[Rfam]
RNA sequence: GAACUCUUCUGUUAGGUGAGGUUCCGUUACGGAUACAUGCUGCUGCCCCCAAACAUCCAGAGAUGCCCCGGGGUCAACAGGUAUUACCGAGUUAAGGUUUUACUUAAUGUAGCUGGCAUGGCUUAGUCCAUGCCAAAGCUGUAACGUGCCAAAGCUCUACGUUCAAAAGAGGUG
Numbered sequence: 001g002a003a004c005u006c007u008u009c010u011g012u013u014a015g016g017u018g019a020g021g022u023u024c025c026g027u028u029a030c031g032g033a034u035a036c037a038u039g040c041u042g043c044u045g046c047c048c049c050c051a052a053a054c055a056u057c058c059a060g061a062g063a064u065g066c067c068c069c070g071g072g073g074u075c076a077a078c079a080g081g082u083a084u085u086a087c088c089g090a091g092u093u094a095a096g097g098u099u100u101u102a103c104u105u106a107a108u109g110u111a112g113c114u115g116g117c118a119u120g121g122c123u124u125a126g127u128c129c130a131u132g133c134c135a136a137a138g139c140u141g142u143a144a145c146g147u148g149c150c151a152a153a154g155c156u157c158u159a160c161g162u163u164c165a166a167a168a169g170a171g172g173u174g
Base pairs, nucleotide, nucleotide: 005170006169007168008167010165011160012159013095015156016155017154020150021149022148025146026145027144028143029142030141031140032139039113040112041111042110043109045074046073047072048071049070054065055064056063057062080104081103082102083101086098087097088096115134116133117132118131119130120129